The record is a 96-nucleotide sequence from Neomesorhizobium albiziae, which matches "Repression of heat shock gene expression (ROSE) element" in Rfam.
Rfam describes the family as follows. This family represents a 5' UTR cis-regulatory element found in heat shock mRNAs and is known as the ROSE (repression of heat shock gene expression) element. The ROSE element is a negative regulator of heat shock gene expression.
By type it is an RNA thermoregulator.
Rfam links the family to the GO terms regulation of translation and response to temperature stimulus.
The family has 13 seed sequences and 381 matches in Rfam 15.1.
Lineage of the source: Bacteria > Alphaproteobacteria > Hyphomicrobiales > Phyllobacteriaceae > Neomesorhizobium.
The base pairs follow the family's consensus structure, which is taken from published work.
A reference for the family is Nocker et al. (2001), "A mRNA-based thermosensor controls expression of rhizobial heat shock genes", Nucleic Acids Res.
RNA sequence: UCAGUCGCCGCAAGGGGCCGACACGGUCAGGGAGCGCCGGGCUUCCUUGCGCUUGCUCGUAUCUAUGUUGCUCCAAGGAGGAUGUAGCUAGGGGGA
Numbered sequence: 001u002c003a004g005u006c007g008c009c010g011c012a013a014g015g016g017g018c019c020g021a022c023a024c025g026g027u028c029a030g031g032g033a034g035c036g037c038c039g040g041g042c043u044u045c046c047u048u049g050c051g052c053u054u055g056c057u058c059g060u061a062u063c064u065a066u067g068u069u070g071c072u073c074c075a076a077g078g079a080g081g082a083u084g085u086a087g088c089u090a091g092g093g094g095g096a
Stems, first nucleotide, its partner, number of pairs: 001021002004018003008015002032054006039047002056094003060090002063087007071080003